Pseudomon-1/ErsA RNA: a 115-nucleotide RNA from Pseudomonas fluvialis. By type it is a small RNA. For this family Rfam cites "Post-transcriptional regulation of the virulence-associated enzyme AlgC by the sigma(22) -dependent small RNA ErsA of Pseudomonas aeruginosa" (Ferrara et al., Environ Microbiol, 2015).
[Rfam]
RNA sequence: AUGCUCCUGGCAGUGUUUUUAGUGUUGGCAGAAUCUGGGCCACGCCCUAGCGGUCCAGAGUUAAACCCCGAGCUUCCCUCUCCCCAUAGAAGCUUGGGGUUUUUUUUGCCUGCCU
Dot-bracket structure: .................................((((((((..........))))))))...((((((((((((((............))))))))))).)))............
It scores 103 bits against the family's covariance model. Functions to regulate the AlgC enzyme. Based on this information, the new name ErsA for the RNA was adopted. Negatively regulates major porin oprD expression responsible for uptake of carbapenem antibiotics, by base pairing with oprD 5'UTR (leading to increased bacterial resistance to meropenem).Positively regulates amrZ mRNA and contributes to biofilm formation and motility. NCBI's taxonomy places the organism under Bacteria, Pseudomonadati, Pseudomonadota, Pseudomonadales, Pseudomonas.